Rfam assigns this 133-nucleotide RNA from Liparis tanakae to the family "Small nucleolar RNA SNORA13".
[Rfam]
RNA sequence: UGCCUUUAUGUGUUGCUCUUUCACUGUUCCCCUAGUGAUCGGGGUGUCAAAUAAGGCAUACAAUGACACUUGUGGCCGUUUGUUAAAAUUAGUUUGACGUGACUCCUUUACCUAAACGGCUGCAAGGACAUCU
Numbered sequence: 001u002g003c004c005u006u007u008a009u010g011u012g013u014u015g016c017u018c019u020u021u022c023a024c025u026g027u028u029c030c031c032c033u034a035g036u037g038a039u040c041g042g043g044g045u046g047u048c049a050a051a052u053a054a055g056g057c058a059u060a061c062a063a064u065g066a067c068a069c070u071u072g073u074g075g076c077c078g079u080u081u082g083u084u085a086a087a088a089u090u091a092g093u094u095u096g097a098c099g100u101g102a103c104u105c106c107u108u109u110a111c112c113u114a115a116a117c118g119g120c121u122g123c124a125a126g127g128a129c130a131u132c133u
Stems, first nucleotide, its partner, number of pairs: 002057005011049002014046004018041001021038005069126004075120005084115001086113001088108001092103002

The base pairs follow the family's consensus structure, which was predicted with CMfinder. Rfam describes the family as follows. ACA13 is a member of the H/ACA class of snoRNA that guide the sites of modification of uridines to pseudouridines. Its Rfam clan is "SNORA13 clan". The organism belongs to Liparis, within Eukaryota. A search with the family's covariance model found it, with a score of 71 bits.